[Rfam]
Nucleotides: 087
Stems, first nucleotide, its partner, number of pairs: 003082008012074006
Number, partner (000 for none) and nucleotide at each position: 001000a002000g003082u004081g005080u006079g007078a008077c009076a010075u011000g012074c013073c014072c015071g016070u017069u018000g019000g020000g021000u022000u023000g024000a025000a026000c027000u028000c029000u030000g031000a032000u033000g034000u035000u036000g037000u038000g039000u040000a041000u042000u043000u044000a045000a046000u047000u048000a049000c050000u051000a052000u053000u054000a055000u056000a057000u058000u059000a060000c061000u062000u063000u064000u065000g066000g067000g068000u069017a070016a071015c072014g073013g074012g075010g076009u077008g078007u079006u080005a081004c082003a083000a084000a085000a086000a087000c
Background:
The record is an 87-nucleotide RNA sequence from Medicago truncatula, which matches "MIR2617 microRNA precursor family" in Rfam. A search with the family's covariance model found it, with a score of 60 bits. The source organism's lineage runs through Eukaryota, Streptophyta, Embryophyta, Trifolieae and Medicago. Rfam links the family to the GO terms RISC complex and miRNA-mediated post-transcriptional gene silencing. Pairs were carried over by alignment from the consensus structure, which was predicted with RNAalifold.